[Rfam]
RNA sequence: CAAAAUUGAAUAAGUUACACUCGUAUAAUUUUGGAGAUACGGUCCAUAAGUUUCUACCAGACUGCCGUAAAUGGUCUGACUACGGGUUUUAUUAGCUAACUU
Numbered sequence: 001c002a003a004a005a006u007u008g009a010a011u012a013a014g015u016u017a018c019a020c021u022c023g024u025a026u027a028a029u030u031u032u033g034g035a036g037a038u039a040c041g042g043u044c045c046a047u048a049a050g051u052u053u054c055u056a057c058c059a060g061a062c063u064g065c066c067g068u069a070a071a072u073g074g075u076c077u078g079a080c081u082a083c084g085g086g087u088u089u090u091a092u093u094a095g096c097u098a099a100c101u102u
Stems, first nucleotide, its partner, number of pairs: 019087007029049002032046004058078007